[Rfam]
RNA sequence: CGAUGGGAUAGAGGCUGCAGUUUAUAAGAGUAAAACGGACGAGAUUCAAUGAAAUUCACGACUCCGUUUGAAAGGAUAAGUUGCCGAAGUUUGGAUAAAUCAUUGAAUAUCCGGACUGGCGAUGUUUUCGAAUAGGAACAUCACUGUCACGUUUAUUAACGUGGAGAGCUAUCUUCGGA
Numbered sequence: 001c002g003a004u005g006g007g008a009u010a011g012a013g014g015c016u017g018c019a020g021u022u023u024a025u026a027a028g029a030g031u032a033a034a035a036c037g038g039a040c041g042a043g044a045u046u047c048a049a050u051g052a053a054a055u056u057c058a059c060g061a062c063u064c065c066g067u068u069u070g071a072a073a074g075g076a077u078a079a080g081u082u083g084c085c086g087a088a089g090u091u092u093g094g095a096u097a098a099a100u101c102a103u104u105g106a107a108u109a110u111c112c113g114g115a116c117u118g119g120c121g122a123u124g125u126u127u128u129c130g131a132a133u134a135g136g137a138a139c140a141u142c143a144c145u146g147u148c149a150c151g152u153u154u155a156u157u158a159a160c161g162u163g164g165a166g167a168g169c170u171a172u173c174u175u176c177g178g179a
Base pairs, nucleotide, nucleotide: 006174007173008172009171010170011169017084018083019082020081021080022079023078024077025076033069034068035067036066037065038064039063088117089116090115091114092113093112094111095110096109097108118145119144121142122141123140124139125138126137127136128135147164148163149162150161151160152159153158
A member of the RNA family "Lysine riboswitch aptamer" from Peribacillus loiseleuriae, 179 nucleotides long.